Shown here is a 99-nucleotide sequence from Dicentrarchus labrax, a member of the family "Small nucleolar RNA SNORD16". Rfam 15.1 lists 1,321 matches to the family in 655 species. By type it is a C/D-box small nucleolar RNA. On this family, see Fragapane et al., EMBO J 1993: "A novel small nucleolar RNA (U16) is encoded inside a ribosomal protein intron and originates by processing of the pre-mRNA". The family is grouped with related families in Rfam's "SNORD16 clan". Rfam links the family to the GO terms nucleolus and RNA processing. The family's consensus secondary structure was predicted with PFOLD.

RNA sequence: UGCCAUGAUGGUGUAAUUUGCGUCUGAUUUUGUGAACAGUGACGGUUGCCUGCCGUCAUAUGCUGGCACAGAAAGCUGACGACCAACUGAGUCUGAGCA
Numbered sequence: 001u002g003c004c005a006u007g008a009u010g011g012u013g014u015a016a017u018u019u020g021c022g023u024c025u026g027a028u029u030u031u032g033u034g035a036a037c038a039g040u041g042a043c044g045g046u047u048g049c050c051u052g053c054c055g056u057c058a059u060a061u062g063c064u065g066g067c068a069c070a071g072a073a074a075g076c077u078g079a080c081g082a083c084c085a086a087c088u089g090a091g092u093c094u095g096a097g098c099a
Base pairs, nucleotide, nucleotide: 001099002098003097021081022080023079024078030071031070032069033068034067039063040062041057042056043055044054045053